[Rfam]
RNA sequence: CAGUGUUCAGGUCAUUGUGGGCUGUUAGCAAAGAGGCCAGUAAGUCUCUUAGGCCCUGUCUGUUUUAUACCAGAGGUGUGGACUUCAGCUACUUCAUUUUGGCUCUCUAAGACAAUGAAUUCUGCAACUGCAUCUUAUCUUUUCAGGUCUACAUCUGUU
Dot-bracket structure: .......[[[[.[[(((.((((((..((.(...(((.(.((..(((..((.(....]]]]]].......).)).))))).).)))....).)).)).....))).).)))(((((((...(.((....)).)....((((....))))...))).))))
RNA: Interferon gamma 5' UTR regulatory element